[Rfam]
RNA sequence: UUCUGUGCAGGUGGAGAUGCACGGCUUUUAAGUUUGUGUCGAUAGUGUCCACAACUUAAAAGCCGAUUCCUCCUCCUGUUUAAAAAAGUGCUUGAUGCUCCAAAACUUGGAGACGUUGGUCGCGGCUCGGCUGAUAAAACCUGCGCCGCUUGACACAGAAAACCGCCGCAAGCGGUCUCUGACGCGCACCUGCACCGGAUGGGAAAGUCUUGUGUGCCACCUGUGGUUUCCGUCGCUUUAAGGAAACUA
Numbered sequence: 001u002u003c004u005g006u007g008c009a010g011g012u013g014g015a016g017a018u019g020c021a022c023g024g025c026u027u028u029u030a031a032g033u034u035u036g037u038g039u040c041g042a043u044a045g046u047g048u049c050c051a052c053a054a055c056u057u058a059a060a061a062g063c064c065g066a067u068u069c070c071u072c073c074u075c076c077u078g079u080u081u082a083a084a085a086a087a088g089u090g091c092u093u094g095a096u097g098c099u100c101c102a103a104a105a106c107u108u109g110g111a112g113a114c115g116u117u118g119g120u121c122g123c124g125g126c127u128c129g130g131c132u133g134a135u136a137a138a139a140c141c142u143g144c145g146c147c148g149c150u151u152g153a154c155a156c157a158g159a160a161a162a163c164c165g166c167c168g169c170a171a172g173c174g175g176u177c178u179c180u181g182a183c184g185c186g187c188a189c190c191u192g193c194a195c196c197g198g199a200u201g202g203g204a205a206a207g208u209c210u211u212g213u214g215u216g217c218c219a220c221c222u223g224u225g226g227u228u229u230c231c232g233u234c235g236c237u238u239u240a241a242g243g244a245a246a247c248u249a
Base pairs, nucleotide, nucleotide: 013073014072015071016070022065023064024063025062026061027060028059029058030057032055036052037051038050074111075110076109078107114184115183116182117181119154120153121152122149123148124147125146129141130140132138158179159178162176163175164174165173166172192215193214194213195212197209198208226247227246228245229244230243231242

A member of the RNA family "rne-II RNA" from Ventosimonas gracilis, 249 nucleotides long. It scores 83 bits against the family's covariance model. NCBI's taxonomy places the organism under Bacteria, Pseudomonadati, Pseudomonadota, Pseudomonadales, Ventosimonas.